[Rfam]
RNA: Selenocysteine insertion sequence 1
RNA sequence: UUUACUUAAUGAAGAUGCUCCUGUAAACCAUUUUGUGUAAGGAGUUUCCGAUGAAGAUGUAAA
Dot-bracket structure: (((((........((.((((((......(((...)))..)))))).))..........)))))